[Rfam]
RNA sequence: CAGGGGGCCGAGGCAGCCGCGUUGUCUUUUGACACCGAGGAAAGUCCGGGCUCCACGAAACGAAGGUGGCGGGUAACGCCCGCCCGGCGAACCCUUCGGGGAAAGCCGAGGGAAAGUGCCACAGAGAGUAUACCGCCGAUGGCGCCUAAAGCGCACAGGCAAGGGUGAAAGGGUGCGGCAAGAGCGCACCGGGGCGCUGGCAACAGCGCCCGCAUGGCAAACCCCACCUGGAGCAAGGCCAAAUAGGGGCCUCGCGCCUGUUUUCAGGCAGGAGUGUUUCGCUCCGAGAGGCCCGGGUUGGCUGCUUGAGCCGUCCAGCAAUGGUCGGCCUAGAUGAAUGGCUGCCGCCGCGCGGCAGGUCCGGUAACGGAUACCGCGCGCGGAGACAGAACCCGGCUUAUGAGGCCCCCUGAUGU
Numbered sequence: 001c002a003g004g005g006g007g008c009c010g011a012g013g014c015a016g017c018c019g020c021g022u023u024g025u026c027u028u029u030u031g032a033c034a035c036c037g038a039g040g041a042a043a044g045u046c047c048g049g050g051c052u053c054c055a056c057g058a059a060a061c062g063a064a065g066g067u068g069g070c071g072g073g074u075a076a077c078g079c080c081c082g083c084c085c086g087g088c089g090a091a092c093c094c095u096u097c098g099g100g101g102a103a104a105g106c107c108g109a110g111g112g113a114a115a116g117u118g119c120c121a122c123a124g125a126g127a128g129u130a131u132a133c134c135g136c137c138g139a140u141g142g143c144g145c146c147u148a149a150a151g152c153g154c155a156c157a158g159g160c161a162a163g164g165g166u167g168a169a170a171g172g173g174u175g176c177g178g179c180a181a182g183a184g185c186g187c188a189c190c191g192g193g194g195c196g197c198u199g200g201c202a203a204c205a206g207c208g209c210c211c212g213c214a215u216g217g218c219a220a221a222c223c224c225c226a227c228c229u230g231g232a233g234c235a236a237g238g239c240c241a242a243a244u245a246g247g248g249g250c251c252u253c254g255c256g257c258c259u260g261u262u263u264u265c266a267g268g269c270a271g272g273a274g275u276g277u278u279u280c281g282c283u284c285c286g287a288g289a290g291g292c293c294c295g296g297g298u299u300g301g302c303u304g305c306u307u308g309a310g311c312c313g314u315c316c317a318g319c320a321a322u323g324g325u326c327g328g329c330c331u332a333g334a335u336g337a338a339u340g341g342c343u344g345c346c347g348c349c350g351c352g353c354g355g356c357a358g359g360u361c362c363g364g365u366a367a368c369g370g371a372u373a374c375c376g377c378g379c380g381c382g383g384a385g386a387c388a389g390a391a392c393c394c395g396g397c398u399u400a401u402g403a404g405g406c407c408c409c410c411u412g413a414u415g416u
Stems, first nucleotide, its partner, number of pairs: 001412009011401001012346007020037002023034004042399003046396005051233004060279001062277001064229005069083005084110001085108004111224002116222002118218003133164002135160003140157002142154004172190006191213001192211008237303004247294006271285005310329004315324003
This 416-nucleotide RNA from Erythrobacter sp. THAF29 belongs to the Rfam family "Bacterial RNase P class A".
The family's RNA type in Rfam is ribozyme.
A search with the family's covariance model found it, with a score of 288 bits.
NCBI's taxonomy places the organism under Bacteria, Pseudomonadota, Sphingomonadales, Erythrobacteraceae, Erythrobacter.